Rfam assigns this 110-nucleotide sequence from Loktanella sp. 3ANDIMAR09 to the family "Guanidine-I riboswitch aptamer". Lineage of the source: Bacteria > Pseudomonadati > Pseudomonadota > Roseobacteraceae > Loktanella.
RNA sequence: UGGCAGAGCACUUAGGGUUCCGUUGUCGCCCGCGACAAGCCUGGUCCAAGAAGAGCUACCGCGCCGGCAAAUUCCGGGGCGGCACACGGCGGGGCAAAAUCCCGGGAGGC
Numbered sequence: 001u002g003g004c005a006g007a008g009c010a011c012u013u014a015g016g017g018u019u020c021c022g023u024u025g026u027c028g029c030c031c032g033c034g035a036c037a038a039g040c041c042u043g044g045u046c047c048a049a050g051a052a053g054a055g056c057u058a059c060c061g062c063g064c065c066g067g068c069a070a071a072u073u074c075c076g077g078g079g080c081g082g083c084a085c086a087c088g089g090c091g092g093g094g095c096a097a098a099a100u101c102c103c104g105g106g107a108g109g110c
Stems, first nucleotide, its partner, number of pairs: 007057003011053002015047002020044002022041001023038006059082004064077004085105001087108001091103003